A member of the RNA family "int-alpA RNA", 68 nucleotides long. Rfam classes the family as a small RNA. About the family: Acidobacteria (1 example), Planctomycetes (1 example), Proteobacteria. Rfam's curators put it in the seed alignment.
[Rfam]
RNA sequence: CAGCAAACUAGCUUGACGAAGCGAAAAGCGGAACUGUGACCGCCUGUUUGCUGAUUUGUUGUUCACAG
Numbered sequence: 001c002a003g004c005a006a007a008c009u010a011g012c013u014u015g016a017c018g019a020a021g022c023g024a025a026a027a028g029c030g031g032a033a034c035u036g037u038g039a040c041c042g043c044c045u046g047u048u049u050g051c052u053g054a055u056u057u058g059u060u061g062u063u064c065a066c067a068g
Base pairs, nucleotide, nucleotide: 001053002052003051004050005049006048007047008046011022012021013020014019028043029042030041031040034068035067036066037065038064039063